[Rfam]
The record is a 99-nucleotide RNA sequence from Treponema vincentii, which matches "TD-2 RNA" in Rfam. Rfam classes the family as a small RNA.
RNA sequence: UAUUGCUUGGAACCACUGACAUCCUGUCAGAGAAGCGAUGUUUCGGCUUUGCCGAAACUCGUAGCCAAAAGUGUACAAGGAUGUACACUUUUGGCGUAG
Numbered sequence: 001u002a003u004u005g006c007u008u009g010g011a012a013c014c015a016c017u018g019a020c021a022u023c024c025u026g027u028c029a030g031a032g033a034a035g036c037g038a039u040g041u042u043u044c045g046g047c048u049u050u051g052c053c054g055a056a057a058c059u060c061g062u063a064g065c066c067a068a069a070a071g072u073g074u075a076c077a078a079g080g081a082u083g084u085a086c087a088c089u090u091u092u093g094g095c096g097u098a099g
Base pairs, nucleotide, nucleotide: 001018002017004015005014036061037060038059040058041057042056043055044054045053046052047051064095065094066093067092068091069090070089071088072087073086074085075084076083
Its Rfam clan is "TD (Treponema denticola) motifs". Rfam 15.1 lists 310 matches to the family in 11 species.